[Rfam]
RNA: c-di-AMP riboswitch aptamer (ydaO/yuaA leader)
Organism: Streptomyces sp. MZ04
Nucleotides: 157
Base pairs, nucleotide, nucleotide: 001139005028006027007026029137030136031135032134033133034132039074075122076121077120083099084098085097086096102116103115104114105113
Number, partner (000 for none) and nucleotide at each position: 001139c002000c003000c004000a005028u006027c007026u008000a009000c010000u011000c012000a013000c014000u015000u016000a017000c018000g019000c020000a021000c022000g023000g024000c025000a026007g027006g028005a029137g030136c031135g032134g033133g034132g035000g036000a037000c038000c039074c040000a041000g042000g043000u044000a045000a046000g047000c048000c049000g050000c051000c052000g053000a054000u055000c056000c057000g058000g059000a060000u061000u062000c063000c064000g065000g066000a067000a068000c069000g070000g071000c072000u073000c074039g075122g076121g077120g078000u079000g080000a081000a082000g083099u084098c085097g086096c087000a088000u089000g090000c091000g092000c093000a094000g095000u096086g097085c098084g099083a100000c101000c102116g103115g104114a105113c106000a107000u108000c109000u110000c111000c112000c113105g114104u115103c116102c117000g118000a119000a120077c121076c122075c123000g124000a125000c126000a127000g128000c129000u130000c131000a132034c133033c134032u135031c136030g137029u138000a139001g140000g141000c142000g143000a144000c145000g146000g147000a148000g149000a150000g151000g152000a153000a154000u155000u156000c157000g